[Rfam]
RNA sequence: GUUGAAGACACUGGAGGCAGCGGUUCAUCGAUCUGUUCCCUGAAAGCUGAAUAUAUAUGCAAAAAAUACAGCAAAAGGAACCGGUCGAUAAACCUCUGCAUCCAGUGCUUAACCC
Numbered sequence: 001g002u003u004g005a006a007g008a009c010a011c012u013g014g015a016g017g018c019a020g021c022g023g024u025u026c027a028u029c030g031a032u033c034u035g036u037u038c039c040c041u042g043a044a045a046g047c048u049g050a051a052u053a054u055a056u057a058u059g060c061a062a063a064a065a066a067u068a069c070a071g072c073a074a075a076a077g078g079a080a081c082c083g084g085u086c087g088a089u090a091a092a093c094c095u096c097u098g099c100a101u102c103c104a105g106u107g108c109u110u111a112a113c114c115c
Stems, first nucleotide, its partner, number of pairs: 013103003018098003022094004027089007036080003
MIR162_1 microRNA precursor family: a 115-nucleotide sequence from Solanum commersonii. The family is grouped with related families in Rfam's "MIR167 microRNA precursor clan". The family's consensus secondary structure was predicted with RNAalifold. Rfam links the family to the GO terms miRNA-mediated post-transcriptional gene silencing and RISC complex.